Overview: Shown here is a 163-nucleotide sequence from Arabis nemorensis, a member of the family "U1 spliceosomal RNA". Lineage of the source: Eukaryota > Streptophyta > Pentapetalae > rosids > Arabis. The family's consensus secondary structure is taken from published work. Rfam 15.1 lists 40,184 matches to the family in 1,499 species. Rfam describes the family as follows. U1 is a small nuclear RNA (snRNA) component of the spliceosome (involved in pre-mRNA splicing). Its 5' end forms complementary base pairs with the 5' splice junction, thus defining the 5' donor site of an intron. There are significant differences in sequence and secondary structure between metazoan and yeast U1 snRNAs, the latter being much longer (568 nucleotides as compared to 164 nucleotides in human). Nevertheless, secondary structure predictions suggest that all U1 snRNAs share a 'common core' consisting of helices I, II, the proximal region of III, and IV. This family does not contain the larger yeast sequences.
RNA sequence: AUACUUACCUGGACGGGGUCAACUCGUGAUCAAGAAGACGAGUGGCCUAGGCAGUGACUUCCAUUGCACACUAAGGAGGGGUGCUAUGCCUAAGGUCUUCCCAAGUGGAAGAGCCUGCGUCAUUAUUUGUGGCAGUUGGGGCCUGCGUUCGCGCGGCCCCUCC
Numbered sequence: 001a002u003a004c005u006u007a008c009c010u011g012g013a014c015g016g017g018g019u020c021a022a023c024u025c026g027u028g029a030u031c032a033a034g035a036a037g038a039c040g041a042g043u044g045g046c047c048u049a050g051g052c053a054g055u056g057a058c059u060u061c062c063a064u065u066g067c068a069c070a071c072u073a074a075g076g077a078g079g080g081g082u083g084c085u086a087u088g089c090c091u092a093a094g095g096u097c098u099u100c101c102c103a104a105g106u107g108g109a110a111g112a113g114c115c116u117g118c119g120u121c122a123u124u125a126u127u128u129g130u131g132g133c134a135g136u137u138g139g140g141g142c143c144u145g146c147g148u149u150c151g152c153g154c155g156g157c158c159c160c161u162c163c
Stems, first nucleotide, its partner, number of pairs: 012121004016048006023042005049091004054084003058080003061076002093116003096112003100108002138161004144155004